The record is a 73-nucleotide sequence from Candidatus Methylopumilus planktonicus, which matches "tRNA" in Rfam.
The organism belongs to Candidatus Methylopumilus, within Bacteria.
The family's RNA type in Rfam is transfer RNA.
[Rfam]
RNA sequence: UCCUCGAUAGCUCAGCUGGUAGAGCAACGGACUGUUAAUCCGUGUGUCCCUGGUUCGAGCCCAGGUCGAGGAG
Numbered sequence: 001u002c003c004u005c006g007a008u009a010g011c012u013c014a015g016c017u018g019g020u021a022g023a024g025c026a027a028c029g030g031a032c033u034g035u036u037a038a039u040c041c042g043u044g045u046g047u048c049c050c051u052g053g054u055u056c057g058a059g060c061c062c063a064g065g066u067c068g069a070g071g072a073g
Base pairs, nucleotide, nucleotide: 001072002071003070004069005068006067007066010025011024012023013022027043028042029041030040031039049065050064051063052062053061